RNA sequence: GAUGAGGCGGACUUAAUGAUUUUUAUCGCUCACCACUCUCUGGCUCUACUACUAAACGCCUUCACUGUGCGCGGUAGGCUGGCGGGUAGCGGUAAACAUUAAUCCGACUCACCAGACAAACAAAAACCCGCGCCACUGCGCGGGUUUUUUU
Numbered sequence: 001g002a003u004g005a006g007g008c009g010g011a012c013u014u015a016a017u018g019a020u021u022u023u024u025a026u027c028g029c030u031c032a033c034c035a036c037u038c039u040c041u042g043g044c045u046c047u048a049c050u051a052c053u054a055a056a057c058g059c060c061u062u063c064a065c066u067g068u069g070c071g072c073g074g075u076a077g078g079c080u081g082g083c084g085g086g087u088a089g090c091g092g093u094a095a096a097c098a099u100u101a102a103u104c105c106g107a108c109u110c111a112c113c114a115g116a117c118a119a120a121c122a123a124a125a126a127c128c129c130g131c132g133c134c135a136c137u138g139c140g141c142g143g144g145u146u147u148u149u150u151u
Stems, first nucleotide, its partner, number of pairs: 004110001006108001008106003013102006026089001028087004033082003049077005057071003123148011
RNA: Leucine operon leader